Rfam assigns this 112-nucleotide RNA from Brevundimonas abyssalis to the family "SAM riboswitch aptamer (S box leader)". The family's consensus secondary structure is taken from published work. The source organism's lineage runs through Bacteria, Pseudomonadati, Pseudomonadota, Caulobacterales and Brevundimonas abyssalis. Rfam links the family to the GO term regulation of gene expression.
[Rfam]
RNA sequence: GGCUCAUCAAGACCGGUCGAGGGAUAGGCCCUUUGACGCCGGGGCAACCUCGGGCUUUCGCCCGAAAGGUGCCAACUCCUGCGAGAGCCUUCGGGUUCGCGAGAGAUGAGUG
Numbered sequence: 001g002g003c004u005c006a007u008c009a010a011g012a013c014c015g016g017u018c019g020a021g022g023g024a025u026a027g028g029c030c031c032u033u034u035g036a037c038g039c040c041g042g043g044g045c046a047a048c049c050u051c052g053g054g055c056u057u058u059c060g061c062c063c064g065a066a067a068g069g070u071g072c073c074a075a076c077u078c079c080u081g082c083g084a085g086a087g088c089c090u091u092c093g094g095g096u097u098c099g100c101g102a103g104a105g106a107u108g109a110g111u112g
Stems, first nucleotide, its partner, number of pairs: 002111007013042005021031003025081004043073004048069002050065004077104001082101002085098003